[Rfam]
RNA sequence: GUGGGCUAUGGAGACAUGGUCCCAAUCACAAUCGGAGGUAAGAUCGUAGGAUCACUGUGCGCCAUUGCUGGUGUGCUGACAAUUGCCCUCCCAGUGCCAGUCAUUGUGUCCAAC
Numbered sequence: 001g002u003g004g005g006c007u008a009u010g011g012a013g014a015c016a017u018g019g020u021c022c023c024a025a026u027c028a029c030a031a032u033c034g035g036a037g038g039u040a041a042g043a044u045c046g047u048a049g050g051a052u053c054a055c056u057g058u059g060c061g062c063c064a065u066u067g068c069u070g071g072u073g074u075g076c077u078g079a080c081a082a083u084u085g086c087c088c089u090c091c092c093a094g095u096g097c098c099a100g101u102c103a104u105u106g107u108g109u110c111c112a113a114c
Stems, first nucleotide, its partner, number of pairs: 001114002004111002007108005013102003018097001021094001037077004049063002

The family of this 114-nucleotide RNA from Cynoglossus semilaevis is "Potassium channel RNA editing signal". This family represents a group of sequences related to the human potassium channel Kv1.1 hairpin element which directs the efficient modification of an adenosine to inosine by an adenosine deaminase acting on RNA (ADAR). The ADAR modification causes an isoleucine/valine recoding event which lies in the ion-conducting pore of the potassium channel. It is thought that this editing event targets the process of fast inactivation and allows a more rapid recovery from inactivation at negative potentials. Taxonomically the source falls in Cynoglossus (Eukaryota, Chordata, Clupeocephala, Pleuronectoidei). It is annotated as a cis-regulatory element.